[Rfam]
The family of this 74-nucleotide RNA from Jaculus jaculus is "Small nucleolar RNA ZL8". It scores 64 bits against the family's covariance model. Pairs were carried over by alignment from the consensus structure, which was predicted with RNAfold. Lineage of the source: Eukaryota > Bilateria > Eutheria > Dipodidae > Jaculus. Gene Ontology terms of the family: nucleolus and RNA processing. Rfam 15.1 lists 113 matches to the family in 77 species.

RNA sequence: UUAGGUAAUGAUGACUCCGGUUGGACUAGAGUCUCUGAGCUCUUUUCUGAGGAUCUUUGAAACCGCCUGAUCCA
Numbered sequence: 001u002u003a004g005g006u007a008a009u010g011a012u013g014a015c016u017c018c019g020g021u022u023g024g025a026c027u028a029g030a031g032u033c034u035c036u037g038a039g040c041u042c043u044u045u046u047c048u049g050a051g052g053a054u055c056u057u058u059g060a061a062a063c064c065g066c067c068u069g070a071u072c073c074a
Stems, first nucleotide, its partner, number of pairs: 004073002014071001016070002019067003023063001028056003032052004037047003